[Rfam]
RNA sequence: UCGAAGCUCCAUCUACAAAUGGAUAAGACCCUGGUCUUAGUUUAGACGAGUUCUUGAAAUAAAAAAGGAGCAAUAAACUCCCUCUUGUUUCUAUUAAGAGGGCAAGUAUUGCUCCUUUUU
Numbered sequence: 001u002c003g004a005a006g007c008u009c010c011a012u013c014u015a016c017a018a019a020u021g022g023a024u025a026a027g028a029c030c031c032u033g034g035u036c037u038u039a040g041u042u043u044a045g046a047c048g049a050g051u052u053c054u055u056g057a058a059a060u061a062a063a064a065a066a067g068g069a070g071c072a073a074u075a076a077a078c079u080c081c082c083u084c085u086u087g088u089u090u091c092u093a094u095u096a097a098g099a100g101g102g103c104a105a106g107u108a109u110u111g112c113u114c115c116u117u118u119u120u
Stems, first nucleotide, its partner, number of pairs: 008023005061118001065117011080102001082100005

The family of this 120-nucleotide RNA sequence from Ilex integra is "Plastid-psbA-1 3UTR RNA".
A reference for the family is Richter et al. (2023), "Retrograde signaling in plants: A critical review focusing on the GUN pathway and beyond", Plant Commun.
Rfam classes the family as a cis-regulatory element.
The organism belongs to Ilex, within Eukaryota.
About the family: Plastid psbA-1 is a non-coding RNA (ncRNA) present in plastids.
Its Rfam clan is "Plastid-psbA 3UTR RNA clan".